[Rfam]
RNA sequence: AGUGCUAUGUGGAAGACUUGUGAUUUUGUUGUUCUAAUGUGAUAUGACAACAAGUCACAGCCGGCCUCAUAGCGUGGACU
Dot-bracket structure: .((.(((((.((..(.((.(((((((.((((((............))))))))))))))).)..)).))))).)).....
RNA: mir-7 microRNA precursor family